[Rfam]
This 157-nucleotide RNA sequence from Clostridiales bacterium CHKCI001 belongs to the Rfam family "Clostridiales-1 RNA". A search with the family's covariance model found it, with a score of 89 bits.
RNA sequence: UAAAAGUGUCGUCAAUAGACUGACAGCUAAGGGAUUUAUCCCUUAUGCUGACUGGAUAUUAGACGACCUAACCUGUAUGGGCAAGUAAGGCAUUUGCCUGGAUUGCGAAUACAGGCAGCGAUGUCGAGAGUGCAUAGCACGGAGACAUCGACUUUUA
Numbered sequence: 001u002a003a004a005a006g007u008g009u010c011g012u013c014a015a016u017a018g019a020c021u022g023a024c025a026g027c028u029a030a031g032g033g034a035u036u037u038a039u040c041c042c043u044u045a046u047g048c049u050g051a052c053u054g055g056a057u058a059u060u061a062g063a064c065g066a067c068c069u070a071a072c073c074u075g076u077a078u079g080g081g082c083a084a085g086u087a088a089g090g091c092a093u094u095u096g097c098c099u100g101g102a103u104u105g106c107g108a109a110u111a112c113a114g115g116c117a118g119c120g121a122u123g124u125c126g127a128g129a130g131u132g133c134a135u136a137g138c139a140c141g142g143a144g145a146c147a148u149c150g151a152c153u154u155u156u157a
Stems, first nucleotide, its partner, number of pairs: 001157007008067004014060004020054001022052001024050004030043005072115007081106004088099004119150007130140004